[Rfam]
RNA: TD-2 RNA
RNA sequence: ACUGCCAUGGAUGGCAGUGGCACUGCUCAGAAGCCAGUUUUGCUUGCAAAACUGGCAGUCAAGGAAUUGACAGGGAUGUCAAUUCCUUGACGUUA
Numbered sequence: 001a002c003u004g005c006c007a008u009g010g011a012u013g014g015c016a017g018u019g020g021c022a023c024u025g026c027u028c029a030g031a032a033g034c035c036a037g038u039u040u041u042g043c044u045u046g047c048a049a050a051a052c053u054g055g056c057a058g059u060c061a062a063g064g065a066a067u068u069g070a071c072a073g074g075g076a077u078g079u080c081a082a083u084u085c086c087u088u089g090a091c092g093u094u095a
Base pairs, nucleotide, nucleotide: 001018002017003016004015005014006013034055035054036053037052038051039050040049041048042047058091059090060089061088062087063086064085065084066083067082068081069080070079071078